[Rfam]
RNA sequence: GAAAAAGCGACGAGAAGGAGAAGUAGCUGGACCCUUUCUUUUCAGAGAGAACCGCCUUGGGCUGUGAGCGGUUUAAGAGAGGUCCUGUGAAAUGCGCCUUUGAGUCUUCUGCUGAACUCUAAGUAGGCAGAAGCGGCCACACGCCGUUACCGUGCAUGAGUUGGGGCUCAUCAGCCCAAUCAGAGUGGAACCGCGCCAAAGGCGUCUCUGUC
Numbered sequence: 001g002a003a004a005a006a007g008c009g010a011c012g013a014g015a016a017g018g019a020g021a022a023g024u025a026g027c028u029g030g031a032c033c034c035u036u037u038c039u040u041u042u043c044a045g046a047g048a049g050a051a052c053c054g055c056c057u058u059g060g061g062c063u064g065u066g067a068g069c070g071g072u073u074u075a076a077g078a079g080a081g082g083u084c085c086u087g088u089g090a091a092a093u094g095c096g097c098c099u100u101u102g103a104g105u106c107u108u109c110u111g112c113u114g115a116a117c118u119c120u121a122a123g124u125a126g127g128c129a130g131a132a133g134c135g136g137c138c139a140c141a142c143g144c145c146g147u148u149a150c151c152g153u154g155c156a157u158g159a160g161u162u163g164g165g166g167c168u169c170a171u172c173a174g175c176c177c178a179a180u181c182a183g184a185g186u187g188g189a190a191c192c193g194c195g196c197c198a199a200a201g202g203c204g205u206c207u208c209u210g211u212c
Base pairs, nucleotide, nucleotide: 007105008104015100016099017098018097026088027087029085030084031083038077039076040075049074050073051072052071053070054069107132108131109130110129111128112127113126134146135145136144164177165176166175167174168173182209183208184207185206193205194204195203196202197201
Overview: The family of this 212-nucleotide sequence from Ectobacillus ponti is "T-box leader". Uncharged tRNA acts as the effector for transcription antitermination of genes in the T-box leader family. T-boxes are found upstream of many aminoacyl-tRNA synthetase genes and some amino acid biosynthetic genes usually in Gram-positive bacteria. The anticodon of a specific tRNA base pairs to a specifier sequence within the T-box motif, and the NCCA acceptor tail of the tRNA base pairs to a conserved bulge in the T-box antiterminator hairpin. The match comes from Rfam's covariance-model search (122 bits). NCBI's taxonomy places the organism under Bacteria, Bacillati, Bacillota, Bacilli, Ectobacillus.